[Rfam]
RNA: U1 spliceosomal RNA
Organism: Nannospalax galili
RNA sequence: AUACUUACCUGGCAGAGGAGACACCAUGAUCAGGAAGGUGGUUUUCCCAGGGUGAGGCUCAUCCAUUGCACUUGGGAUGUGCUGACCCCUGUGAUUGCCCCAAAUGCAGGAAACUCAACUGCAUAAUUUGUGGUAAUGGGAGAUUGCGUUUGCAUUUUGCCCUG
Dot-bracket structure: ...........((((.(((((.(((((..........)))))))))).((((.(.(((.(((((..........))))).)))..))))).(((((..(.........)..)).))).))))...............(((..(..(.(....).)..).)))..